[Rfam]
RNA sequence: CGCAAACGCACUCUGUGUCACAUUUUGUAUUCUACGUGUGACGACAAUUUGUCAGUUUGCUAAUUAAAGAGAUGCGUCUUAUCCAUGUGGUCAAGCUCGUCUAAGGGUGAUUACAUUGAAAACGCAUUUCACACUCA
Numbered sequence: 001c002g003c004a005a006a007c008g009c010a011c012u013c014u015g016u017g018u019c020a021c022a023u024u025u026u027g028u029a030u031u032c033u034a035c036g037u038g039u040g041a042c043g044a045c046a047a048u049u050u051g052u053c054a055g056u057u058u059g060c061u062a063a064u065u066a067a068a069g070a071g072a073u074g075c076g077u078c079u080u081a082u083c084c085a086u087g088u089g090g091u092c093a094a095g096c097u098c099g100u101c102u103a104a105g106g107g108u109g110a111u112u113a114c115a116u117u118g119a120a121a122a123c124g125c126a127u128u129u130c131a132c133a134c135u136c137a
Stems, first nucleotide, its partner, number of pairs: 002060006010052002014046003017042007027035002067135001071130001072127005082119002085116008

The record is a 137-nucleotide sequence from Drosophila gunungcola, which matches "Small nucleolar RNA psi18S-841/snoR66" in Rfam. Rfam describes the family as follows. psi18S-841 is a member of the H/ACA class of snoRNA. This family is responsible for guiding the modification of uridine 841 in Drosophila 18S rRNA to pseudouridine. The family has 24 seed sequences and 108 matches in Rfam 15.1. The organism belongs to elegans subgroup (in: flies), within Eukaryota.